Overview:
This 90-nucleotide sequence from Podilymbus podiceps belongs to the Rfam family "Small nucleolar RNA SNORD60". Rfam 15.1 lists 825 matches to the family in 373 species. A search with the family's covariance model found it, with a score of 46 bits. On this family, see Galardi et al., Mol Cell Biol 2002: "Purified box C/D snoRNPs are able to reproduce site-specific 2'-O-methylation of target RNA in vitro". NCBI's taxonomy places the organism under Eukaryota, Sarcopterygii, Sauria, Archelosauria, Podilymbus. Pairs were carried over by alignment from the consensus structure, which was predicted with PFOLD.
[Rfam]
RNA sequence: GGCCGGUGAUGAUCCCGAUUUACUUUCUGACACCUCGUCUGAGGGCGGCGGGCGGCCGCGGCCCCUGGUGACGACCCACGGCUGAGGCCC
Numbered sequence: 001g002g003c004c005g006g007u008g009a010u011g012a013u014c015c016c017g018a019u020u021u022a023c024u025u026u027c028u029g030a031c032a033c034c035u036c037g038u039c040u041g042a043g044g045g046c047g048g049c050g051g052g053c054g055g056c057c058g059c060g061g062c063c064c065c066u067g068g069u070g071a072c073g074a075c076c077c078a079c080g081g082c083u084g085a086g087g088c089c090c
Base pairs, nucleotide, nucleotide: 001089002088003087004086045059046058047057048056049055